[Rfam]
RNA: Small nucleolar RNA SNORA17
RNA sequence: CCUGCUCCUAGAGAUGUCGCAGGUGUGGCUGCCUUCCGGUGUGCGUCAGUAGGUGGCAAGGAGGAGAGAGGCUAUGUUUAUACUAAGUGCUCUGACCUAUGAACACCUGAACAGUUAGUAGCCUAACAUU
Numbered sequence: 001c002c003u004g005c006u007c008c009u010a011g012a013g014a015u016g017u018c019g020c021a022g023g024u025g026u027g028g029c030u031g032c033c034u035u036c037c038g039g040u041g042u043g044c045g046u047c048a049g050u051a052g053g054u055g056g057c058a059a060g061g062a063g064g065a066g067a068g069a070g071g072c073u074a075u076g077u078u079u080a081u082a083c084u085a086a087g088u089g090c091u092c093u094g095a096c097c098u099a100u101g102a103a104c105a106c107c108u109g110a111a112c113a114g115u116u117a118g119u120a121g122c123c124u125a126a127c128a129u130u
Base pairs, nucleotide, nucleotide: 003058004057005056006055007053008052009051010050013047014046015045019044020043021042024039027036028035066127069124070123071122072121073120074119075118081113084110086108087107088105089104091102092101